[Rfam]
RNA sequence: UGGCCAAGGAUGAAAAAUAUGAACUGAUUGCAGAUACUUCUGUAGAGUGUUAUGCACAAAUCUGAUGUUUUAAAGGAUUUUCUGAGGCCA
Numbered sequence: 001u002g003g004c005c006a007a008g009g010a011u012g013a014a015a016a017a018u019a020u021g022a023a024c025u026g027a028u029u030g031c032a033g034a035u036a037c038u039u040c041u042g043u044a045g046a047g048u049g050u051u052a053u054g055c056a057c058a059a060a061u062c063u064g065a066u067g068u069u070u071u072a073a074a075g076g077a078u079u080u081u082c083u084g085a086g087g088c089c090a
Stems, first nucleotide, its partner, number of pairs: 002089004